[Rfam]
RNA sequence: GCCCUGGGCUGGAUAUCAUCAUAUACUGUAAGUUCACUAUGAGACACUACAGUAUAGAUGAUGUACUCCCCUGGGCUG
Numbered sequence: 001g002c003c004c005u006g007g008g009c010u011g012g013a014u015a016u017c018a019u020c021a022u023a024u025a026c027u028g029u030a031a032g033u034u035c036a037c038u039a040u041g042a043g044a045c046a047c048u049a050c051a052g053u054a055u056a057g058a059u060g061a062u063g064u065a066c067u068c069c070c071c072u073g074g075g076c077u078g
Stems, first nucleotide, its partner, number of pairs: 007070002011066001013064008022056009032045003
RNA: mir-144 microRNA precursor family
Organism: Gallus gallus